[Rfam]
RNA sequence: UGAGACAAAGCCAAACCCGUAGUGAAACGGGGACGGAAAGCCACGGAUCUCUCGAGAAAGCCGGGCUACCUCAA
Numbered sequence: 001u002g003a004g005a006c007a008a009a010g011c012c013a014a015a016c017c018c019g020u021a022g023u024g025a026a027a028c029g030g031g032g033a034c035g036g037a038a039a040g041c042c043a044c045g046g047a048u049c050u051c052u053c054g055a056g057a058a059a060g061c062c063g064g065g066c067u068a069c070c071u072c073a074a
Stems, first nucleotide, its partner, number of pairs: 001074001003071002011036002016031005034060001039067004044063003048057002